Overview
The family of this 85-nucleotide RNA from Heliconius melpomene is "mir-927 microRNA precursor family". Rfam links the family to the GO terms RISC complex and miRNA-mediated post-transcriptional gene silencing. The source organism's lineage runs through Eukaryota, Amphiesmenoptera, Lepidoptera, Heliconiini and Heliconius. The sequence is in the family's curated seed alignment.

RNA sequence: CAGCAGCGUUUUCGUUUUAGAAUUCCUACGCUUUACCGUUGCCAAGUUAUUGGGCAAAGCGUUUGGAUUCUAAAACGAAAUAGCU
Dot-bracket structure: .........(((.((((((((.(((..(((((((.((...............)).)))))))..))).)))))))))))......